[Rfam]
RNA sequence: AAAGCAGGUUGCAAUUACAGUGCUUCAUUUUGUGGAAGUACUGACAUUAUCCUGCUGAAAGAAAAUCUGUUGAUCUUUUCUUGAUUUUGCCUUUAUGGGGGUAAAAUCAUGAGGUUGACAUGAACAACU
Numbered sequence: 001a002a003a004g005c006a007g008g009u010u011g012c013a014a015u016u017a018c019a020g021u022g023c024u025u026c027a028u029u030u031u032g033u034g035g036a037a038g039u040a041c042u043g044a045c046a047u048u049a050u051c052c053u054g055c056u057g058a059a060a061g062a063a064a065a066u067c068u069g070u071u072g073a074u075c076u077u078u079u080c081u082u083g084a085u086u087u088u089g090c091c092u093u094u095a096u097g098g099g100g101g102u103a104a105a106a107u108c109a110u111g112a113g114g115u116u117g118a119c120a121u122g123a124a125c126a127a128c129u
Stems, first nucleotide, its partner, number of pairs: 003056006018043009068120008082109012